RNA sequence: AAAUUAUUAAGAAGACGGGAGAGAUAUAGCUCUGUGAACGUCUACCAACCAGCAGUUAGCUACGGUGGUACAGCUAUAAACGAUAAAUU
Numbered sequence: 001a002a003a004u005u006a007u008u009a010a011g012a013a014g015a016c017g018g019g020a021g022a023g024a025u026a027u028a029g030c031u032c033u034g035u036g037a038a039c040g041u042c043u044a045c046c047a048a049c050c051a052g053c054a055g056u057u058a059g060c061u062a063c064g065g066u067g068g069u070a071c072a073g074c075u076a077u078a079a080a081c082g083a084u085a086a087a088u089u
Base pairs, nucleotide, nucleotide: 001089002088004086005085006084007083008082013043014042015041016040017039021032022031023030026077027076028075029074044069045068046067047066049065050064051061052060053059073081
SAM riboswitch aptamer (S box leader): an 89-nucleotide RNA sequence from Acholeplasma brassicae. About the family: The SAM riboswitch is found upstream of a number of genes which code for proteins involved in methionine or cysteine biosynthesis in Gram-positive bacteria. The SAM riboswitch acts at the level of transcription termination control. The predicted structure consists of a complex stem-loop region followed by a single stem loop terminator region.